RNA sequence: CUGUAACCAAUUUAAGACGACCAGUUCCUUUCUUCAUGGGAACCUGGUGUACGCUGGCUGCAAACAGCAGUUUUCAUGAUAGAACCAUCAGCCUGCUGCCCUUAUGAGUUGCCCUACGGGACCUUGGAGACAACU
Numbered sequence: 001c002u003g004u005a006a007c008c009a010a011u012u013u014a015a016g017a018c019g020a021c022c023a024g025u026u027c028c029u030u031u032c033u034u035c036a037u038g039g040g041a042a043c044c045u046g047g048u049g050u051a052c053g054c055u056g057g058c059u060g061c062a063a064a065c066a067g068c069a070g071u072u073u074u075c076a077u078g079a080u081a082g083a084a085c086c087a088u089c090a091g092c093c094u095g096c097u098g099c100c101c102u103u104a105u106g107a108g109u110u111g112c113c114c115u116a117c118g119g120g121a122c123c124u125u126g127g128a129g130a131c132a133a134c135u
Stems, first nucleotide, its partner, number of pairs: 002053004020048004025042004078123001080121001089111004094106001
Small nucleolar RNA SNORA70: a 135-nucleotide RNA sequence from Rattus norvegicus. Taxonomically the source falls in Rattus (Eukaryota, Sarcopterygii, Dipnotetrapodomorpha, Muridae). A search with the family's covariance model found it, with a score of 90 bits. The family has 43 seed sequences and 5,173 matches in Rfam 15.1. Gene Ontology terms of the family: RNA processing and nucleolus. Rfam describes the family as follows. snoRNA U70 seems to be exclusive to mammals and is a member of the H/ACA class of snoRNA which contain H (ANANNA) and ACA box motifs. H/ACA box snoRNAs are involved in the conversion of uridines to pseudouridines (5-ribosyluracil) a constituent of structural RNAs (transfer, ribosomal, small nuclear, and small nucleolar). A reference for the family is Charette and Gray (2000), "Pseudouridine in RNA: what, where, how, and why", IUBMB Life. Rfam classes the family as an H/ACA-box small nucleolar RNA.